A member of the RNA family "MIR8565 microRNA precursor family" from Amborella trichopoda, 154 nucleotides long. It scores 138 bits against the family's covariance model.
[Rfam]
RNA sequence: CCCACGCCCAUAUGUGUAGGACCUCAAAGGAUCACCAUUAAAUUUGACAUAGAUAUCUAGAAAAGUUAUUACAUGGGUGUGGGACUUGCCUUUUCUAGAGAUCUGUGCCAAAUUUAAUGGUGAUCCUUUAGGGUCUUACAAACAUGGGUGUGGG
Dot-bracket structure: .((((((((((.(.((((((((((.(((.(((.(((((((((((((.(((((((.((((((((((.(((((((....)))))....)).)))))))))).))))))).))))))))))))).))).))).)))))))))).).)))))))))).